Shown here is a 100-nucleotide RNA from Populus tomentosa, a member of the family "Small nucleolar RNA R30/Z108". Taxonomically the source falls in Populus (Eukaryota, Embryophyta, Gunneridae, fabids). The base pairs follow the family's consensus structure, which was predicted with PFOLD. For this family Rfam cites "Experimental RNomics. Identification of 140 Candidates for Small Non-Messenger RNAs in the Plant Arabidopsis thaliana" (Marker et al., Curr Biol, 2002). From the family's description: snoR30 is a C/D box small nucleolar RNA which acts as a methylation guide for 18S ribosomal RNA in plants.
RNA sequence: UGAGAUUACAAGGAGGAUUUUCAGCUCCCUCUUCUGAUUAAAAGUUGAGGAAACUAGCUGGCCGAAUCGAACCAAUUUAUUUACAGCCAUCACUGAGUAA
Numbered sequence: 001u002g003a004g005a006u007u008a009c010a011a012g013g014a015g016g017a018u019u020u021u022c023a024g025c026u027c028c029c030u031c032u033u034c035u036g037a038u039u040a041a042a043a044g045u046u047g048a049g050g051a052a053a054c055u056a057g058c059u060g061g062c063c064g065a066a067u068c069g070a071a072c073c074a075a076u077u078u079a080u081u082u083a084c085a086g087c088c089a090u091c092a093c094u095g096a097g098u099a100a
Base pairs, nucleotide, nucleotide: 006100007099008098009097